[Rfam]
RNA sequence: CAAAGCAAGAAGAAGCGCCCGCUUCUCACCUGAUUGACUUAAAAGAUGUUGACAGGUUACCGUGUAGAUCGAGUGAAUCGGAAGUGUGGGCGACGUAUGUACCCACACUUUUUUUAAUGA
Numbered sequence: 001c002a003a004a005g006c007a008a009g010a011a012g013a014a015g016c017g018c019c020c021g022c023u024u025c026u027c028a029c030c031u032g033a034u035u036g037a038c039u040u041a042a043a044a045g046a047u048g049u050u051g052a053c054a055g056g057u058u059a060c061c062g063u064g065u066a067g068a069u070c071g072a073g074u075g076a077a078u079c080g081g082a083a084g085u086g087u088g089g090g091c092g093a094c095g096u097a098u099g100u101a102c103c104c105a106c107a108c109u110u111u112u113u114u115u116a117a118u119g120a
Stems, first nucleotide, its partner, number of pairs: 011026006028057003036050003039046002085107006092100001094099001
RNA: Ribosomal protein L20 leader